[Rfam]
RNA sequence: GGCAAUAAACGGUCGGUGUAAUAAACCUAUUGGACCCGGGGGCGGUACCCGGCGCCUCCACCAAAAACCGGUCGGGCUUCUCGCAUGGGAUGACCGGCUUUUGAUGGGGGCGAAAUAGGAUCGACAAGGGCGUAAAGAUCGAACUUUUGCUCGGCAUGAUACCGCCGUUAUCGGGUCACAAGUGUAGUUGCAAACGACAACAACGCUAAGGAAUACGCUCUCGCUGCCUAA
Numbered sequence: 001g002g003c004a005a006u007a008a009a010c011g012g013u014c015g016g017u018g019u020a021a022u023a024a025a026c027c028u029a030u031u032g033g034a035c036c037c038g039g040g041g042g043c044g045g046u047a048c049c050c051g052g053c054g055c056c057u058c059c060a061c062c063a064a065a066a067a068c069c070g071g072u073c074g075g076g077c078u079u080c081u082c083g084c085a086u087g088g089g090a091u092g093a094c095c096g097g098c099u100u101u102u103g104a105u106g107g108g109g110g111c112g113a114a115a116u117a118g119g120a121u122c123g124a125c126a127a128g129g130g131c132g133u134a135a136a137g138a139u140c141g142a143a144c145u146u147u148u149g150c151u152c153g154g155c156a157u158g159a160u161a162c163c164g165c166c167g168u169u170a171u172c173g174g175g176u177c178a179c180a181a182g183u184g185u186a187g188u189u190g191c192a193a194a195c196g197a198c199a200a201c202a203a204c205g206c207u208a209a210g211g212a213a214u215a216c217g218c219u220c221u222c223g224c225u226g227c228c229u230a231a
Base pairs, nucleotide, nucleotide: 001151002150003149004148005147014141015140016139017138026130027129028128030127031126032125036052037051038050039049040048053112054111055110056109057108058107059106152167153166154165155164
Dot-bracket structure: (((((........((((........(((.(((...(((((.......)))))(((((((..............................................)))))))............)))))).......)))).....)))))((((........))))................................................................

The family of this 231-nucleotide RNA from Rhizobium sp. RU36D is "permuted transfer-messenger RNA". A reference for the family is Williams and Bartel (1996), "Phylogenetic analysis of tmRNA secondary structure", RNA. Bacterial tmRNA, also known as 10Sa RNA or SsrA, is named for its dual tRNA and mRNA-like properties. The organism belongs to Rhizobium, within Bacteria. Pairs were carried over by alignment from the consensus structure, which is taken from published work. A search with the family's covariance model found it, with a score of 161 bits.